[Rfam]
RNA sequence: UGAUCUUAUGGCAAAAUACGCGAAAUGCAGAUAGCCGACGUUUUAACGCGUCGGUUAUUUUUUUUG
Numbered sequence: 001u002g003a004u005c006u007u008a009u010g011g012c013a014a015a016a017u018a019c020g021c022g023a024a025a026u027g028c029a030g031a032u033a034g035c036c037g038a039c040g041u042u043u044u045a046a047c048g049c050g051u052c053g054g055u056u057a058u059u060u061u062u063u064u065u066g
Stems, first nucleotide, its partner, number of pairs: 011021002032057009

Description: A member of the RNA family "Enterobacterial sRNA STnc240" from Serratia fonticola, 66 nucleotides long. It is annotated as a small RNA. NCBI's taxonomy places the organism under Bacteria, Pseudomonadota, Gammaproteobacteria, Yersiniaceae, Serratia. It scores 58 bits against the family's covariance model.